[Rfam]
RNA: Small nucleolar RNA psi18S-1377
RNA sequence: ACGUUCUUGUGUUAUUUGCUGGGUGUUUUUUUAUAAACCAGUGAUUGUCAAACAGAACGCAUAAUAAACCCAGAAAACUAAUCACUCCAUAAUGAUGGGUCCAUUUUAACCAGGACCACUUCAUUACUAACUGUUCGCUACAGUU
Numbered sequence: 001a002c003g004u005u006c007u008u009g010u011g012u013u014a015u016u017u018g019c020u021g022g023g024u025g026u027u028u029u030u031u032u033a034u035a036a037a038c039c040a041g042u043g044a045u046u047g048u049c050a051a052a053c054a055g056a057a058c059g060c061a062u063a064a065u066a067a068a069c070c071c072a073g074a075a076a077a078c079u080a081a082u083c084a085c086u087c088c089a090u091a092a093u094g095a096u097g098g099g100u101c102c103a104u105u106u107u108a109a110c111c112a113g114g115a116c117c118a119c120u121u122c123a124u125u126a127c128u129a130a131c132u133g134u135u136c137g138c139u140a141c142a143g144u145u
Stems, first nucleotide, its partner, number of pairs: 002059006010050002016044007091125005098117004